[Rfam]
RNA: Human acetyl-coA cholesterol acyltransferase mRNA
Organism: Tursiops truncatus
RNA sequence: CUGUUGGGCUGGUGGCGUUGGCGGCCUGGGGCAGCCGGGAAGCGAGCGGCUAGGAGCCGACCUUCUUGCCAGCCGCGCUGUGACGGCUUCUCGGCUUUGCCUUCCUUGCUGAGGUCCCCGCUGCCAGGCUCCGGCCCCAGGUAAUGCCCAU
Numbered sequence: 001c002u003g004u005u006g007g008g009c010u011g012g013u014g015g016c017g018u019u020g021g022c023g024g025c026c027u028g029g030g031g032c033a034g035c036c037g038g039g040a041a042g043c044g045a046g047c048g049g050c051u052a053g054g055a056g057c058c059g060a061c062c063u064u065c066u067u068g069c070c071a072g073c074c075g076c077g078c079u080g081u082g083a084c085g086g087c088u089u090c091u092c093g094g095c096u097u098u099g100c101c102u103u104c105c106u107u108g109c110u111g112a113g114g115u116c117c118c119c120g121c122u123g124c125c126a127g128g129c130u131c132c133g134g135c136c137c138c139a140g141g142u143a144a145u146g147c148c149c150a151u
Stems, first nucleotide, its partner, number of pairs: 013017001035094002038091003045088003050082001053079002056076001058075002061072001108135003114131001117128002120125001